RNA sequence: UUGAAAGUUCCAUGCUUCCUUGCAUUCAAUAGUGUAUUGAGAAAGCUAUGGAAUGUAAAGAAGUAUGGAGCGCUCGG
Numbered sequence: 001u002u003g004a005a006a007g008u009u010c011c012a013u014g015c016u017u018c019c020u021u022g023c024a025u026u027c028a029a030u031a032g033u034g035u036a037u038u039g040a041g042a043a044a045g046c047u048a049u050g051g052a053a054u055g056u057a058a059a060g061a062a063g064u065a066u067g068g069a070g071c072g073c074u075c076g077g
Stems, first nucleotide, its partner, number of pairs: 007071012020058006027051001029049003
Dot-bracket structure: ......((((((((((((.((((((.(.(((...............))).).)))))).))))))))))))......
Shown here is a 77-nucleotide RNA from Anopheles sinensis, a member of the family "mir-1 microRNA precursor family". About the family: This family represents the microRNA (miRNA) mir-1 family. miRNAs are transcribed as ~70nt precursors (modelled here) and subsequently processed by the Dicer enzyme to give a ~22nt product. In this case the mature sequence comes from the 3' arm of the precursor. The extents of the hairpin precursors are not generally known and are estimated based on hairpin prediction.